MIR398 microRNA precursor family: a 99-nucleotide sequence from Trifolium pratense. The family's consensus secondary structure was predicted with WAR. It scores 75 bits against the family's covariance model. The literature on the family includes a 2004 paper in Mol Cell by Jones-Rhoades and Bartel, "Computational identification of plant microRNAs and their targets, including a stress-induced miRNA".

RNA sequence: AGAUAUUCUACAGGGUCGACCUGAGACCACAUGAAGCUAUUAUGUAAGCCUAAGCUAUAUCCAGUUCAUGUGUUCUCAGGUCGCCCCUGCUGAAUUUUC
Numbered sequence: 001a002g003a004u005a006u007u008c009u010a011c012a013g014g015g016u017c018g019a020c021c022u023g024a025g026a027c028c029a030c031a032u033g034a035a036g037c038u039a040u041u042a043u044g045u046a047a048g049c050c051u052a053a054g055c056u057a058u059a060u061c062c063a064g065u066u067c068a069u070g071u072g073u074u075c076u077c078a079g080g081u082c083g084c085c086c087c088u089g090c091u092g093a094a095u096u097u098u099c
Stems, first nucleotide, its partner, number of pairs: 007093002011089004017083003023077004028072005